[Rfam]
RNA sequence: ACAUUCUAAGGAGAUGGUAUUCCUCCGAUUACAAACCGCCUUUUUGGCUAAUGAUGCCUACGUUACU
Number, nucleotide and partner (000 for none) at each position: 001a000002c000003a000004u000005u000006c000007u000008a000009a000010g026011g025012a024013g023014a000015u000016g058017g057018u056019a055020u054021u053022c000023c013024u012025c011026c010027g000028a000029u000030u000031a000032c000033a000034a000035a000036c000037c000038g048039c047040c046041u000042u000043u000044u000045u000046g040047g039048c038049u000050a000051a000052u000053g021054a020055u019056g018057c017058c016059u000060a000061c000062g000063u000064u000065a000066c000067u000

The family of this 67-nucleotide RNA from Acinetobacter larvae is "Fluoride riboswitch aptamer (crcB RNA motif)".
A search with the family's covariance model found it, with a score of 53 bits.
The organism belongs to Acinetobacter, within Bacteria.
The family's consensus secondary structure is taken from published work.
On this family, see Baker et al., Science 2012: "Widespread genetic switches and toxicity resistance proteins for fluoride".